[Rfam]
RNA sequence: CAUACAAUCGAAUAUACACCGUAGACAGUAGGUGCCUUUUGUGCUUAAUAUCCUACCGAGGUCAAUUAUAGAGCAACUUAUUUUGCUUAUAACCUCUCUUGUCUACGGAAGAGAGGUUUUUUGUUCCAGAC
Number, nucleotide and partner (000 for none) at each position: 001c000002a000003u000004a000005c000006a000007a000008u000009c000010g000011a000012a000013u000014a000015u000016a000017c000018a000019c000020c000021g000022u000023a000024g000025a000026c000027a000028g056029u055030a054031g053032g052033u000034g044035c043036c000037u000038u000039u000040u000041g000042u000043g035044c034045u000046u000047a000048a000049u000050a000051u000052c032053c031054u030055a029056c028057c000058g000059a000060g000061g000062u000063c000064a000065a000066u000067u000068a000069u000070a000071g000072a000073g000074c000075a000076a000077c000078u000079u000080a000081u000082u000083u000084u000085g000086c000087u000088u000089a000090u000091a000092a000093c116094c115095u114096c113097u112098c111099u110100u109101g000102u107103c000104u000105a000106c000107g102108g000109a100110a099111g098112a097113g096114a095115g094116g093117u000118u000119u000120u000121u000122u000123g000124u000125u000126c000127c000128a000129g000130a000131c000
A member of the RNA family "Ribosomal protein L10 leader" from Acidaminobacter hydrogenoformans, 131 nucleotides long.
The match comes from Rfam's covariance-model search (77 bits).
NCBI's taxonomy places the organism under Bacteria, Clostridia, Peptostreptococcales, Acidaminobacter, Acidaminobacter hydrogenoformans.